Pseudomonas sRNA P9: a 74-nucleotide RNA from Pseudomonas sp. SSM44. This small RNA (sRNA) was computationally identified in the genome of the opportunistic pathogen Pseudomonas aeruginosa and its expression verified by northern blot analysis. The organism belongs to Pseudomonas, within Bacteria. The match comes from Rfam's covariance-model search (67 bits). By type it is a non-coding RNA gene.
RNA sequence: AUGAUUAUUACCGCCAUUCCCAUAUCGGCGGGCUAGCUACGUGCGCACCCAAACCCGCCUCCGAGGCGGGUUUU
Numbered sequence: 001a002u003g004a005u006u007a008u009u010a011c012c013g014c015c016a017u018u019c020c021c022a023u024a025u026c027g028g029c030g031g032g033c034u035a036g037c038u039a040c041g042u043g044c045g046c047a048c049c050c051a052a053a054c055c056c057g058c059c060u061c062c063g064a065g066g067c068g069g070g071u072u073u074u
Base pairs, nucleotide, nucleotide: 011031012030013029014028015027051073052072053071054070055069056068057067058066059065